[Rfam]
RNA sequence: GUGGCCGUGUAGUCCCAGGUGGCGUCGGCGUCGAGCAGCGCGUUCUCGCCGAAGCGGUCGCCGUCGCCGAGGACGGAGACGGCGAUGUCUUCGCCGUAGGGGCCCUCGGCGGUCUGGGCGAUGCGGCCGUGCGCGAGGAGGUGGAUCUCGCCCGCGGCGUUGCCGCGGGUGACGAUGACGUCGCCGGCGGAGAAGUCGCGCUGGACGCAGCGGCCGGCGAGCGCGGCGAGCACCUCGUCGUCGUCGAAGCCGCGCAGCAGGGCGAGUUCGCCGAGCUCGCGGGGGAUGACGCGGACGGUGGCGCCGUCCUGCACGAACUCCACCCGGCCGUCGCCGACGGUGUAGCUCAGUCGGCGGUUGACCCGGUAGGCGCCGCCCUUGGUCUCCACCCAGGGGAGCAUCCGCAGCAGCCAGCGGGAGGUGAUCUCCUGCAUCUGCGGGGCGGACUUGGUGGUCGAGGCGAGGUUCCGCGCGGCAUCGGUGCUGAGGGACUGCUGCG
Numbered sequence: 001g002u003g004g005c006c007g008u009g010u011a012g013u014c015c016c017a018g019g020u021g022g023c024g025u026c027g028g029c030g031u032c033g034a035g036c037a038g039c040g041c042g043u044u045c046u047c048g049c050c051g052a053a054g055c056g057g058u059c060g061c062c063g064u065c066g067c068c069g070a071g072g073a074c075g076g077a078g079a080c081g082g083c084g085a086u087g088u089c090u091u092c093g094c095c096g097u098a099g100g101g102g103c104c105c106u107c108g109g110c111g112g113u114c115u116g117g118g119c120g121a122u123g124c125g126g127c128c129g130u131g132c133g134c135g136a137g138g139a140g141g142u143g144g145a146u147c148u149c150g151c152c153c154g155c156g157g158c159g160u161u162g163c164c165g166c167g168g169g170u171g172a173c174g175a176u177g178a179c180g181u182c183g184c185c186g187g188c189g190g191a192g193a194a195g196u197c198g199c200g201c202u203g204g205a206c207g208c209a210g211c212g213g214c215c216g217g218c219g220a221g222c223g224c225g226g227c228g229a230g231c232a233c234c235u236c237g238u239c240g241u242c243g244u245c246g247a248a249g250c251c252g253c254g255c256a257g258c259a260g261g262g263c264g265a266g267u268u269c270g271c272c273g274a275g276c277u278c279g280c281g282g283g284g285g286a287u288g289a290c291g292c293g294g295a296c297g298g299u300g301g302c303g304c305c306g307u308c309c310u311g312c313a314c315g316a317a318c319u320c321c322a323c324c325c326g327g328c329c330g331u332c333g334c335c336g337a338c339g340g341u342g343u344a345g346c347u348c349a350g351u352c353g354g355c356g357g358u359u360g361a362c363c364c365g366g367u368a369g370g371c372g373c374c375g376c377c378c379u380u381g382g383u384c385u386c387c388a389c390c391c392a393g394g395g396g397a398g399c400a401u402c403c404g405c406a407g408c409a410g411c412c413a414g415c416g417g418g419a420g421g422u423g424a425u426c427u428c429c430u431g432c433a434u435c436u437g438c439g440g441g442g443c444g445g446a447c448u449u450g451g452u453g454g455u456c457g458a459g460g461c462g463a464g465g466u467u468c469c470g471c472g473c474g475g476c477a478u479c480g481g482u483g484c485u486g487a488g489g490g491a492c493u494g495c496u497g498c499g
Stems, first nucleotide, its partner, number of pairs: 007389003011385002014382002018328001021325002025322001027320002031316002035312004040307003047303005054233001058229007065111004075103001080099001082097003086093001117222001119219002122216002127212001130209001131206001134203002138199001140197001143196001149192001155189002158186002161183001163177001166174002235295002240290006250282005256277003260271001262269001329342004353377005362370002391431007399423003403418001405416001407415001437476002440473001442471005447465003451461002484499001487496002